The family of this 96-nucleotide RNA sequence from Halorhabdus sp. CBA1104 is "S15-Halobacteria ribosomal protein leader". The family's consensus secondary structure is taken from published work. NCBI's taxonomy places the organism under Archaea, Methanobacteriota, Halobacteriales, Haloarculaceae, Halorhabdus. The family is grouped with related families in Rfam's "Ribosomal Protein S15 Leader clan".
[Rfam]
RNA sequence: GGUGGGAACACACGACCGCAAAUCUGACUCGUCGCGCGGGCGUCGAUGACGCCUCAGGCCUCUUUCGCCGUGCGCGACUCGGGAUUGCGGACGUGU
Numbered sequence: 001g002g003u004g005g006g007a008a009c010a011c012a013c014g015a016c017c018g019c020a021a022a023u024c025u026g027a028c029u030c031g032u033c034g035c036g037c038g039g040g041c042g043u044c045g046a047u048g049a050c051g052c053c054u055c056a057g058g059c060c061u062c063u064u065u066c067g068c069c070g071u072g073c074g075c076g077a078c079u080c081g082g083g084a085u086u087g088c089g090g091a092c093g094u095g096u
Stems, first nucleotide, its partner, number of pairs: 010096004016090006024083002031078007